Shown here is a 70-nucleotide RNA from Granulicella rosea, a member of the family "nadA riboswitch". Rfam classes the family as a small RNA. The source organism's lineage runs through Bacteria, Acidobacteriota, Terriglobia, Terriglobales and Granulicella. The match comes from Rfam's covariance-model search (58 bits).
[Rfam]
RNA sequence: GGUUGCAACAUCCCCGUGGGUUGGCGUUCCGACGUAUAUAUCGGCGGAACGUAGCGCAUCCACUGCAACC
Numbered sequence: 001g002g003u004u005g006c007a008a009c010a011u012c013c014c015c016g017u018g019g020g021u022u023g024g025c026g027u028u029c030c031g032a033c034g035u036a037u038a039u040a041u042c043g044g045c046g047g048a049a050c051g052u053a054g055c056g057c058a059u060c061c062a063c064u065g066c067a068a069c070c
Stems, first nucleotide, its partner, number of pairs: 001070007013056001014054001016063006024052008